[Rfam]
RNA sequence: AUGAGUUCGGCGUGAGAGUGUAUUGACUUACCACCGAUGGGGCAAUGUGAGCUGCGUCCUCUGCAGGCACAGAAUCUCUCAGGUUGAAUAGCGCCGAACGAUG
Dot-bracket structure: .....((((((((......(((......))).(((((..(((...((((..................))))....))))).)))......)))))))).....
RNA: Glycine riboswitch aptamer